[Rfam]
RNA: ctRNA
RNA sequence: GCUUUCCCCCAGCUACUACUGGGUGAUAAGCGAAGGUCACUUGGUUGCCGCCGAGUGGCCUUCUUUCGUCUUUAGUAU
Numbered sequence: 001g002c003u004u005u006c007c008c009c010c011a012g013c014u015a016c017u018a019c020u021g022g023g024u025g026a027u028a029a030g031c032g033a034a035g036g037u038c039a040c041u042u043g044g045u046u047g048c049c050g051c052c053g054a055g056u057g058g059c060c061u062u063c064u065u066u067c068g069u070c071u072u073u074a075g076u077a078u
Base pairs, nucleotide, nucleotide: 001031002030003029006025008023009022010021011020012019033062034061035060036059037058038057039056040055041054042053043052044051045050